[Rfam]
RNA sequence: GCUCUGAGUAUAAGCGGUCAGCGCGGCCCACCGGCGCGCGGGACAUUGCUCUGCAG
Numbered sequence: 001g002c003u004c005u006g007a008g009u010a011u012a013a014g015c016g017g018u019c020a021g022c023g024c025g026g027c028c029c030a031c032c033g034g035c036g037c038g039c040g041g042g043a044c045a046u047u048g049c050u051c052u053g054c055a056g
Stems, first nucleotide, its partner, number of pairs: 006051005015041001018043002021039005027033001
The family of this 56-nucleotide RNA sequence from Pluralibacter gergoviae is "Xanthine riboswitch aptamer (NMT1 RNA)". On this family, see Yu and Breaker, RNA 2020: "A bacterial riboswitch class senses xanthine and uric acid to regulate genes associated with purine oxidation". The source organism's lineage runs through Bacteria, Pseudomonadati, Pseudomonadota, Enterobacterales and Pluralibacter. The base pairs follow the family's consensus structure, which is taken from published work.